RNA sequence: CCAAAUAUAGGGAAUGAGGUUCUCCCUUGGUUUUUACCUAAACUGCUAUUACAGCUGAUGACUUCUAUGAUUUU
Numbered sequence: 001c002c003a004a005a006u007a008u009a010g011g012g013a014a015u016g017a018g019g020u021u022c023u024c025c026c027u028u029g030g031u032u033u034u035u036a037c038c039u040a041a042a043c044u045g046c047u048a049u050u051a052c053a054g055c056u057g058a059u060g061a062c063u064u065c066u067a068u069g070a071u072u073u074u
Stems, first nucleotide, its partner, number of pairs: 010026004016065006045055003
Dot-bracket structure: .........[[[[..((((((.]]]]..................(((.....)))....)))))).........
Source information: Shown here is a 74-nucleotide RNA from Enterococcus cecorum, a member of the family "Fluoride riboswitch aptamer (crcB RNA motif)". Taxonomically the source falls in Enterococcus cecorum (Bacteria, Bacillati, Bacillota, Enterococcus).